About this RNA: A member of the RNA family "T-box leader" from Clostridium fallax, 245 nucleotides long. Rfam classes the family as a cis-regulatory leader. Lineage of the source: Bacteria > Bacillota > Clostridia > Clostridiaceae > Clostridium. On this family, see Winkler et al., RNA 2001: "The GA motif: an RNA element common to bacterial antitermination systems, rRNA, and eukaryotic RNAs". From the family's description: Uncharged tRNA acts as the effector for transcription antitermination of genes in the T-box leader family. T-boxes are found upstream of many aminoacyl-tRNA synthetase genes and some amino acid biosynthetic genes usually in Gram-positive bacteria. The anticodon of a specific tRNA base pairs to a specifier sequence within the T-box motif, and the NCCA acceptor tail of the tRNA base pairs to a conserved bulge in the T-box antiterminator hairpin. The base pairs follow the family's consensus structure, which is taken from published work. It scores 128 bits against the family's covariance model.
RNA sequence: GUAUAAACUAUGAUGAGAAGAGUAAAUUUAGGACUAAGUUUCAGCGAGUAAACGAUGGUGAGAGGUUUACACAAAGCCUAUGUUGAAAAACAUCUCUGAGUUUCUAACCGAACCUUAUAAUUUAUAACAAGUAGGCUUAGACGGGUUCAUACCGUUAAUUUAUGAACAGCAUUUUGUGCUUACGAGUUGGUCAUUUAUAAUGACAAUUUGGGUGGUACCGCGAAAUUAUACCUUUCGUCCCAUUA
Numbered sequence: 001g002u003a004u005a006a007a008c009u010a011u012g013a014u015g016a017g018a019a020g021a022g023u024a025a026a027u028u029u030a031g032g033a034c035u036a037a038g039u040u041u042c043a044g045c046g047a048g049u050a051a052a053c054g055a056u057g058g059u060g061a062g063a064g065g066u067u068u069a070c071a072c073a074a075a076g077c078c079u080a081u082g083u084u085g086a087a088a089a090a091c092a093u094c095u096c097u098g099a100g101u102u103u104c105u106a107a108c109c110g111a112a113c114c115u116u117a118u119a120a121u122u123u124a125u126a127a128c129a130a131g132u133a134g135g136c137u138u139a140g141a142c143g144g145g146u147u148c149a150u151a152c153c154g155u156u157a158a159u160u161u162a163u164g165a166a167c168a169g170c171a172u173u174u175u176g177u178g179c180u181u182a183c184g185a186g187u188u189g190g191u192c193a194u195u196u197a198u199a200a201u202g203a204c205a206a207u208u209u210g211g212g213u214g215g216u217a218c219c220g221c222g223a224a225a226u227u228a229u230a231c232c233u234u235u236c237g238u239c240c241c242a243u244u245a
Stems, first nucleotide, its partner, number of pairs: 007101002015096004025084003029080002038072002048070006104140004108135002142154003190204006209242004220238005